mir-393 microRNA precursor family: a 110-nucleotide RNA from Cucurbita maxima. The family has 27 seed sequences and 1,052 matches in Rfam 15.1. Lineage of the source: Eukaryota > Euphyllophyta > Spermatophyta > rosids > Cucurbita. A reference for the family is Kruszka et al. (2012), "Role of microRNAs and other sRNAs of plants in their changing environments", J Plant Physiol. It scores 75 bits against the family's covariance model.
RNA sequence: GGUGGAGAGUUCCAAAGGGAUUGCAUUGAUCCAAUGUUUGUCUCGUUCACAAUGUUGGAGUCGAUUCCCGGUCGUUUAUUGGAUCGUGUGAUCCCUUAGGAACCAUCCAU
Numbered sequence: 001g002g003u004g005g006a007g008a009g010u011u012c013c014a015a016a017g018g019g020a021u022u023g024c025a026u027u028g029a030u031c032c033a034a035u036g037u038u039u040g041u042c043u044c045g046u047u048c049a050c051a052a053u054g055u056u057g058g059a060g061u062c063g064a065u066u067c068c069c070g071g072u073c074g075u076u077u078a079u080u081g082g083a084u085c086g087u088g089u090g091a092u093c094c095c096u097u098a099g100g101a102a103c104c105a106u107c108c109a110u
Stems, first nucleotide, its partner, number of pairs: 002110005009103005015097007023089004028085009